Annotation
TPP riboswitch aptamer (THI element): a 96-nucleotide sequence from a Cytophagales bacterium. NCBI's taxonomy places the organism under Bacteria, Pseudomonadati, Bacteroidota, Cytophagia, Cytophagales. About the family: Vitamin B(1) in its active form thiamin pyrophosphate (TPP) is an essential coenzyme that is synthesised by coupling of pyrimidine and thiazole moieties in bacteria.
[Rfam]
RNA sequence: CAUAGACUUUAGGGGCUUCCGCUUUGCCGGAAUGAGAUGUUACCCUCUGAACCUGAUGCAGUUCAUACUGCCGUAGGAAAAAGUCGAGGCAAUGCU
Numbered sequence: 001c002a003u004a005g006a007c008u009u010u011a012g013g014g015g016c017u018u019c020c021g022c023u024u025u026g027c028c029g030g031a032a033u034g035a036g037a038u039g040u041u042a043c044c045c046u047c048u049g050a051a052c053c054u055g056a057u058g059c060a061g062u063u064c065a066u067a068c069u070g071c072c073g074u075a076g077g078a079a080a081a082a083g084u085c086g087a088g089g090c091a092a093u094g095c096u
Base pairs, nucleotide, nucleotide: 006084007083008082009081010080011046012045013044014043017032018031019030020029021028052077053076054075055074058071059070060069061068